[Rfam]
RNA sequence: GCGGAGGUUGCCGAAAAUCCGGGAAAGAGUAGGCG
Numbered sequence: 001g002c003g004g005a006g007g008u009u010g011c012c013g014a015a016a017a018u019c020c021g022g023g024a025a026a027g028a029g030u031a032g033g034c035g
Base pairs, nucleotide, nucleotide: 002021003020004019005018010034011033012032
A member of the RNA family "DUF805b RNA", 35 nucleotides long. Pairs were carried over by alignment from the consensus structure, which is taken from published work. It is one of the family's seed sequences.